This 70-nucleotide RNA sequence from Trypanosoma cruzi belongs to the Rfam family "Trypanosomatid snoRNA TB11Cs5H1". A reference for the family is Liang et al. (2005), "A genome-wide analysis of C/D and H/ACA-like small nucleolar RNAs in Trypanosoma brucei reveals a trypanosome-specific pattern of rRNA modification", RNA. Rfam's curators put it in the seed alignment. It is annotated as an H/ACA-box small nucleolar RNA. The family has 2 seed sequences and 21 matches in Rfam 15.1.
[Rfam]
RNA sequence: AAGCACACACCAACCAGCCCCUUCAGUGUUCUGGAAUACAUGCUGGUGGCCAAAGUGCGGUGCGAGAAAU
Numbered sequence: 001a002a003g004c005a006c007a008c009a010c011c012a013a014c015c016a017g018c019c020c021c022u023u024c025a026g027u028g029u030u031c032u033g034g035a036a037u038a039c040a041u042g043c044u045g046g047u048g049g050c051c052a053a054a055g056u057g058c059g060g061u062g063c064g065a066g067a068a069a070u
Stems, first nucleotide, its partner, number of pairs: 003063004008057003017050003020046002026041004